[Rfam]
RNA: DUF805b RNA
RNA sequence: AAGGAAAAACCCGAAAAUCCUUUAAUAGAGUAGGGA
Numbered sequence: 001a002a003g004g005a006a007a008a009a010c011c012c013g014a015a016a017a018u019c020c021u022u023u024a025a026u027a028g029a030g031u032a033g034g035g036a
Stems, first nucleotide, its partner, number of pairs: 002021004010035003